[Rfam]
RNA sequence: CCAAAGGCUCUUUUCAGAGCCACCGACAAGCAAAAAAAGAGCUUG
Numbered sequence: 001c002c003a004a005a006g007g008c009u010c011u012u013u014u015c016a017g018a019g020c021c022a023c024c025g026a027c028a029a030g031c032a033a034a035a036a037a038a039g040a041g042c043u044u045g
Stems, first nucleotide, its partner, number of pairs: 006021006
Annotation: This 45-nucleotide RNA from Brachypteracias leptosomus belongs to the Rfam family "Histone 3' UTR stem-loop". Rfam describes the family as follows. The mRNAs of metazoan histone genes lack a poly-A tail. 3' end processing occurs at a site between a highly conserved stem-loop (modelled by this family) and a purine rich region around 20 nts downstream (the histone downstream element, or HDE). The stem-loop is bound by a 31 kDa stem-loop binding protein (SLBP - also termed the histone hairpin binding protein, or HBP). Together with U7 snRNA binding of the HDE, SLBP binding nucleate s the formation of the processing complex. By type it is a cis-regulatory element. It scores 38 bits against the family's covariance model.